[Rfam]
Nucleotides: 088
Base pairs, nucleotide, nucleotide: 017070018069019068020067021066022065024063025062028059029058030057031056032055034054035053036052037051
Number, partner (000 for none) and nucleotide at each position: 001000g002000u003000g004000u005000g006000a007000c008000c009000u010000g011000u012000g013000g014000g015000c016000u017070u018069c019068c020067c021066u022065u023000u024063g025062u026000c027000a028059u029058c030057c031056u032055u033000u034054g035053c036052c037051c038000a039000g040000g041000g042000u043000u044000c045000u046000g047000a048000g049000u050000g051037g052036g053035g054034c055032a056031g057030g058029g059028a060000c061000a062025g063024c064000a065022a066021a067020g068019g069018g070017g071000u072000g073000c074000u075000c076000a077000g078000u079000c080000g081000u082000c083000a084000c085000c086000u087000c088000c